[Rfam]
RNA sequence: GGGCGGCUCCGGGACCCUCUGGCGGCUUGAUGCGACCGCGAUGUCGGAGCCCUUCA
Numbered sequence: 001g002g003g004c005g006g007c008u009c010c011g012g013g014a015c016c017c018u019c020u021g022g023c024g025g026c027u028u029g030a031u032g033c034g035a036c037c038g039c040g041a042u043g044u045c046g047g048a049g050c051c052c053u054u055c056a
Stems, first nucleotide, its partner, number of pairs: 006050007022039004027034001
terC RNA: a 56-nucleotide RNA sequence from Rhodovastum atsumiense.
By type it is a cis-regulatory element.